[Rfam]
Rfam assigns this 378-nucleotide RNA sequence from Maioricimonas rarisocia to the family "Bacterial RNase P class A".
About the family: Ribonuclease P (RNase P) is a ubiquitous endoribonuclease, found in archaea, bacteria and eukarya as well as chloroplasts and mitochondria.
A search with the family's covariance model found it, with a score of 294 bits.
The family's RNA type in Rfam is ribozyme.
RNA sequence: GGAGUGGGCCGUGCGACCGCUGUGACGGCAGGCCCUUGUGGACGCCGUCAUGGAGGAAAGUCCGGGCUCCACAGGACACGGUGGUGGGUAACACCCACCGUCUGCGAAGACCGGGACAGUGCCACAGAAAACAGACCGCCGAUGGCCCGCCCCUCCCGGGGUGGGAUCAGGUAAGGGUGAAACGGUGCGGUAAGAGCGCACCGCGGCUGCUGGUGACAGCGCCGGCACGGUAAACCCCACCGGGAGCAAGACCAAGCAGGGCGAAGGGUCGGUCCGGCCCGUUUGACGUCCGGGUAGGUCGCGCGAGGCGACGGGUAACCGUCGUCCCAGACAAAUGGUCGCACCCGACAGAACCCGGCUUACAGGCCCACUCCUUUU
Numbered sequence: 001g002g003a004g005u006g007g008g009c010c011g012u013g014c015g016a017c018c019g020c021u022g023u024g025a026c027g028g029c030a031g032g033c034c035c036u037u038g039u040g041g042a043c044g045c046c047g048u049c050a051u052g053g054a055g056g057a058a059a060g061u062c063c064g065g066g067c068u069c070c071a072c073a074g075g076a077c078a079c080g081g082u083g084g085u086g087g088g089u090a091a092c093a094c095c096c097a098c099c100g101u102c103u104g105c106g107a108a109g110a111c112c113g114g115g116a117c118a119g120u121g122c123c124a125c126a127g128a129a130a131a132c133a134g135a136c137c138g139c140c141g142a143u144g145g146c147c148c149g150c151c152c153c154u155c156c157c158g159g160g161g162u163g164g165g166a167u168c169a170g171g172u173a174a175g176g177g178u179g180a181a182a183c184g185g186u187g188c189g190g191u192a193a194g195a196g197c198g199c200a201c202c203g204c205g206g207c208u209g210c211u212g213g214u215g216a217c218a219g220c221g222c223c224g225g226c227a228c229g230g231u232a233a234a235c236c237c238c239a240c241c242g243g244g245a246g247c248a249a250g251a252c253c254a255a256g257c258a259g260g261g262c263g264a265a266g267g268g269u270c271g272g273u274c275c276g277g278c279c280c281g282u283u284u285g286a287c288g289u290c291c292g293g294g295u296a297g298g299u300c301g302c303g304c305g306a307g308g309c310g311a312c313g314g315g316u317a318a319c320c321g322u323c324g325u326c327c328c329a330g331a332c333a334a335a336u337g338g339u340c341g342c343a344c345c346c347g348a349c350a351g352a353a354c355c356c357g358g359c360u361u362a363c364a365g366g367c368c369c370a371c372u373c374c375u376u377u378u
Base pairs, nucleotide, nucleotide: 001374002373003372004371005370006369007368008367009366010365011363012343013342014341015340016339017338018337020053021052022051023050024049025048026047027046028045058361059360060359062358063357064356065355066354067246068245069244070243074275075274076273077272079242080241081240082239083238084098085097086096087095088094099113100111101110102109103108114237115236119235120234121231122230123229136176137175138172139171140170143169144168145167147165148164184202185201186200187199188198189197203226204224205223206222207221209220210219211218212217250300251299252298253297259291260290261289262288263287266280267279268278269277270276307326308325309324310323311322312321313320314319